[Rfam]
RNA sequence: GCGGUGGUAGCUCAGUUGGUAGAGCGCUCGGUUGUGGUCCGAGUGGUCGUGGGUUCGAGUCCCAUCCAUCGCC
Numbered sequence: 001g002c003g004g005u006g007g008u009a010g011c012u013c014a015g016u017u018g019g020u021a022g023a024g025c026g027c028u029c030g031g032u033u034g035u036g037g038u039c040c041g042a043g044u045g046g047u048c049g050u051g052g053g054u055u056c057g058a059g060u061c062c063c064a065u066c067c068a069u070c071g072c073c
Stems, first nucleotide, its partner, number of pairs: 001072007010025004027043005049065005
This 73-nucleotide RNA from Azospirillum griseum belongs to the Rfam family "tRNA". It is annotated as a transfer RNA. Rfam describes the family as follows. Transfer RNA (tRNA) molecules are approximately 80 nucleotides in length. Its family is annotated with triplet codon-amino acid adaptor activity in the Gene Ontology. The source organism's lineage runs through Bacteria, Pseudomonadati, Alphaproteobacteria, Rhodospirillales and Azospirillum.